[Rfam]
RNA sequence: AAUACUUUUAUGAUGAUUCAAAAUGCAUAGUUCAUCUGAGGCCUAAGGGUCCCUGAAUGAUACAAACAUAGCAACGUCUUUCGCUCCUAUCUGAUAUAAAGUCAA
Numbered sequence: 001a002a003u004a005c006u007u008u009u010a011u012g013a014u015g016a017u018u019c020a021a022a023a024u025g026c027a028u029a030g031u032u033c034a035u036c037u038g039a040g041g042c043c044u045a046a047g048g049g050u051c052c053c054u055g056a057a058u059g060a061u062a063c064a065a066a067c068a069u070a071g072c073a074a075c076g077u078c079u080u081u082c083g084c085u086c087c088u089a090u091c092u093g094a095u096a097u098a099a100a101g102u103c104a105a
Base pairs, nucleotide, nucleotide: 004102005101006100007099008098
The record is a 105-nucleotide RNA sequence from Pseudogymnoascus sp. VKM F-4281, which matches "Small nucleolar RNA snR60/Z15/Z230/Z193/J17" in Rfam. Clan: SNORD77 clan. It scores 61 bits against the family's covariance model.